The record is a 159-nucleotide RNA from Zhihengliuella flava, which matches "c-di-AMP riboswitch aptamer (ydaO/yuaA leader)" in Rfam. NCBI's taxonomy places the organism under Bacteria, Actinomycetota, Micrococcales, Micrococcaceae, Zhihengliuella. The base pairs follow the family's consensus structure.
RNA sequence: GUUCGUUACUACACGUUGGCAGUGGCGGGGGAACCGCGCUGGCUCAUCAUGAGCCGGCAGGGGCCCAGGCUCCUAGGGGUUAAGCAUCCAGAUUGCUGGAGGCCGAGUGACUCCCACUCGAACCCGACAGCUCACCUCGCAGACAUAGGGAGAGGUUAA
Numbered sequence: 001g002u003u004c005g006u007u008a009c010u011a012c013a014c015g016u017u018g019g020c021a022g023u024g025g026c027g028g029g030g031g032a033a034c035c036g037c038g039c040u041g042g043c044u045c046a047u048c049a050u051g052a053g054c055c056g057g058c059a060g061g062g063g064c065c066c067a068g069g070c071u072c073c074u075a076g077g078g079g080u081u082a083a084g085c086a087u088c089c090a091g092a093u094u095g096c097u098g099g100a101g102g103c104c105g106a107g108u109g110a111c112u113c114c115c116a117c118u119c120g121a122a123c124c125c126g127a128c129a130g131c132u133c134a135c136c137u138c139g140c141a142g143a144c145a146u147a148g149g150g151a152g153a154g155g156u157u158a159a
Stems, first nucleotide, its partner, number of pairs: 001144003007024003025140006035076001077125003085102001087100002105119004